[Rfam]
RNA sequence: GCCACAUGAUGUGAAUAUAGAUUGCAUUAGCAUUACUGCAAAGAUGACUUUCUAUCUAUCACCCUGGACUGAUGGCU
Numbered sequence: 001g002c003c004a005c006a007u008g009a010u011g012u013g014a015a016u017a018u019a020g021a022u023u024g025c026a027u028u029a030g031c032a033u034u035a036c037u038g039c040a041a042a043g044a045u046g047a048c049u050u051u052c053u054a055u056c057u058a059u060c061a062c063c064c065u066g067g068a069c070u071g072a073u074g075g076c077u
Stems, first nucleotide, its partner, number of pairs: 001076004030039003
Dot-bracket structure: ((((.........................(((....))).................................)))).
A member of the RNA family "Small nucleolar RNA SNORD83" from Labeo rohita, 77 nucleotides long.
The family's consensus secondary structure was predicted with PFOLD.
A reference for the family is Jady and Kiss (2000), "Characterisation of the U83 and U84 small nucleolar RNAs: two novel 2'-O-ribose methylation guide RNAs that lack complementarities to ribosomal RNAs", Nucleic Acids Res.